[Rfam]
RNA sequence: AUCUGAAAAGGGCAAAACCAUCUAAAGAUGGCGACGCAAAAUUUCCAGUCUAAAGGAAGUUUCCUAUGACCGCGGGAUUGCCAUG
Number, nucleotide and partner (000 for none) at each position: 001a000002u000003c000004u000005g000006a000007a000008a000009a000010g000011g000012g037013c036014a000015a000016a000017a000018c031019c030020a029021u028022c027023u000024a000025a000026a000027g022028a021029u020030g019031g018032c000033g000034a000035c000036g013037c012038a000039a000040a079041a078042u077043u076044u000045c075046c074047a000048g070049u069050c068051u000052a000053a000054a000055g064056g063057a062058a000059g000060u000061u000062u057063c056064c055065u000066a000067u000068g050069a049070c048071c000072g000073c000074g046075g045076g043077a042078u041079u040080g000081c000082c000083a000084u000085g000
This 85-nucleotide sequence from Candidatus Methylobacter favarea belongs to the Rfam family "c-di-GMP-I riboswitch aptamer". The match comes from Rfam's covariance-model search (66 bits). The base pairs follow the family's consensus structure, which is taken from published work. Rfam links the family to the GO term cyclic-di-GMP binding.